[Rfam]
RNA sequence: GCUGCUGUAGAGUAGUAGGAGAGAGGUGUUGCCUCAUCAGCUGCCUCCUCUCCCAUCCUCUCCUGCAGAAGC
Numbered sequence: 001g002c003u004g005c006u007g008u009a010g011a012g013u014a015g016u017a018g019g020a021g022a023g024a025g026g027u028g029u030u031g032c033c034u035c036a037u038c039a040g041c042u043g044c045c046u047c048c049u050c051u052c053c054c055a056u057c058c059u060c061u062c063c064u065g066c067a068g069a070a071g072c
Base pairs, nucleotide, nucleotide: 001072002071003070005068006067007066008065009064010063012062014059015058017056018054019053021052022051023050024049025048026047028045030043031042033040034039
Rfam assigns this 72-nucleotide RNA sequence from Burhinus bistriatus to the family "mir-1759 microRNA precursor family". The source organism's lineage runs through Eukaryota, Chordata, Gnathostomata, Charadriiformes and Burhinus. Pairs were carried over by alignment from the consensus structure, which was predicted with RNAalifold.